The family of this 422-nucleotide RNA sequence is "Giant, ornate, lake- and Lactobacillales-derived (GOLLD) RNA". The sequence is in the family's curated seed alignment. On this family, see Weinberg et al., Nature 2009: "Exceptional structured noncoding RNAs revealed by bacterial metagenome analysis".
RNA sequence: GGAGAUUGUUUACAGUAUUCUUGUCUGAAAGGAUGAGAGCUGUAAUUUAAGAGCGCAAUCUUCACUUCGCCCCUUUUCUGCAUAAUCCUUGUUUAGCCAAAAGGCGUAGAUAACAAGUUCAUUAACAAGAAAAGCAAAGAGUCUCUUAACGGUUAAGAGCAUAGGGCACUUUACCUCUGAAACAAUGAGGUGCAUUAAACCCGCAAGGUUUGGUGUUCAUGAUGAAAGGUCAGGUUGGUUCGUACCCAUUAGACGGUCGGCAGACUUGUACUGAACUGAGUAAUUGUGUAGAUAACUUAACCGAUAAGACUGAUGAGCUAUACUCAUUGUGCCUGAUACUGUACUAAUCGCAAGAUUGGUGGACAAAAGAGGGAAUAGAUAAUCCUCUCAAAGUGGUAUCGCAAAGCCUGUAGUCUCAAGGC
Numbered sequence: 001g002g003a004g005a006u007u008g009u010u011u012a013c014a015g016u017a018u019u020c021u022u023g024u025c026u027g028a029a030a031g032g033a034u035g036a037g038a039g040c041u042g043u044a045a046u047u048u049a050a051g052a053g054c055g056c057a058a059u060c061u062u063c064a065c066u067u068c069g070c071c072c073c074u075u076u077u078c079u080g081c082a083u084a085a086u087c088c089u090u091g092u093u094u095a096g097c098c099a100a101a102a103g104g105c106g107u108a109g110a111u112a113a114c115a116a117g118u119u120c121a122u123u124a125a126c127a128a129g130a131a132a133a134g135c136a137a138a139g140a141g142u143c144u145c146u147u148a149a150c151g152g153u154u155a156a157g158a159g160c161a162u163a164g165g166g167c168a169c170u171u172u173a174c175c176u177c178u179g180a181a182a183c184a185a186u187g188a189g190g191u192g193c194a195u196u197a198a199a200c201c202c203g204c205a206a207g208g209u210u211u212g213g214u215g216u217u218c219a220u221g222a223u224g225a226a227a228g229g230u231c232a233g234g235u236u237g238g239u240u241c242g243u244a245c246c247c248a249u250u251a252g253a254c255g256g257u258c259g260g261c262a263g264a265c266u267u268g269u270a271c272u273g274a275a276c277u278g279a280g281u282a283a284u285u286g287u288g289u290a291g292a293u294a295a296c297u298u299a300a301c302c303g304a305u306a307a308g309a310c311u312g313a314u315g316a317g318c319u320a321u322a323c324u325c326a327u328u329g330u331g332c333c334u335g336a337u338a339c340u341g342u343a344c345u346a347a348u349c350g351c352a353a354g355a356u357u358g359g360u361g362g363a364c365a366a367a368a369g370a371g372g373g374a375a376u377a378g379a380u381a382a383u384c385c386u387c388u389c390a391a392a393g394u395g396g397u398a399u400c401g402c403a404a405a406g407c408c409u410g411u412a413g414u415c416u417c418a419a420g421g422c
Stems, first nucleotide, its partner, number of pairs: 001063009010045005018039008047149007134204002150303008165333005173191005193215009218288005231273003238247001253269003256265002312328006335400003339396003342361008362415003368388006407421003